This 109-nucleotide RNA from Nitrosomonas halophila belongs to the Rfam family "Guanidine-I riboswitch aptamer". It scores 87 bits against the family's covariance model.

RNA sequence: AUCAUUGCAAACUAGGGUUCCGGCUUUCCGGUAAGGCGAAGGCGUCUGGUCCAAGAGUUUGAAGCUUCGCUAUGACGAAGCUCCACGGAGGGAUAAAAGCCCGGGAGAU
Numbered sequence: 001a002u003c004a005u006u007g008c009a010a011a012c013u014a015g016g017g018u019u020c021c022g023g024c025u026u027u028c029c030g031g032u033a034a035g036g037c038g039a040a041g042g043c044g045u046c047u048g049g050u051c052c053a054a055g056a057g058u059u060u061g062a063a064g065c066u067u068c069g070c071u072a073u074g075a076c077g078a079a080g081c082u083c084c085a086c087g088g089a090g091g092g093a094u095a096a097a098a099g100c101c102c103g104g105g106a107g108a109u
Base pairs, nucleotide, nucleotide: 008061009060010059011058012057015052016051020049021048022046023043024042025041026040027039028038063082064081065080066079067078068077069076084104086107090102091101092100
Pairs were carried over by alignment from the consensus structure.